[Rfam]
RNA sequence: UUGCCUUAAACUAAUGAGUAAGGAAAACAAAGCGGAAGGUGAGAACCGGCCGCCGCAUCUCCAUUAAUGGUGCGUGAAUUUAUGGAGGGGUUAUAGGCUGGCCGCGACGUAGACGCUGCCUCUUUUGCAGAACUCGCUCAGGCGGGCCUCCC
Dot-bracket structure: ...(((((..........)))))........((((..((......))..)))).(((((.........)))))...............((....(((((.(......((......((((.......))))....))......).))))).))
U12 minor spliceosomal RNA: a 152-nucleotide sequence from Salvia splendens. The source organism's lineage runs through Eukaryota, Tracheophyta, Mentheae, Salvia subgen. Calosphace and core Calosphace. Rfam 15.1 lists 2,106 matches to the family in 1,170 species. The family's RNA type in Rfam is spliceosomal small nuclear RNA.